RNA: Iron response element I
RNA sequence: CUGUCUCUUGUUUCAACAGUGCUUGAAAGGAGCAG
Numbered sequence: 001c002u003g004u005c006u007c008u009u010g011u012u013u014c015a016a017c018a019g020u021g022c023u024u025g026a027a028a029g030g031a032g033c034a035g
Stems, first nucleotide, its partner, number of pairs: 001035004006031003012027005017021001